[Rfam]
RNA: mir-8/mir-141/mir-200 microRNA precursor family
Organism: Clupea harengus
RNA sequence: AUCUUCAUCUUACAAGGCAGUUUUGGAUGUCUUUGCUUUCUCUAAUACUGCCUGGUAAUGAUGAGAAU
Numbered sequence: 001a002u003c004u005u006c007a008u009c010u011u012a013c014a015a016g017g018c019a020g021u022u023u024u025g026g027a028u029g030u031c032u033u034u035g036c037u038u039u040c041u042c043u044a045a046u047a048c049u050g051c052c053u054g055g056u057a058a059u060g061a062u063g064a065g066a067a068u
Base pairs, nucleotide, nucleotide: 002067004065005064006063007062008061009060010058011057012056013055015053016052017051018050019049020048021047023045024044025043026042027041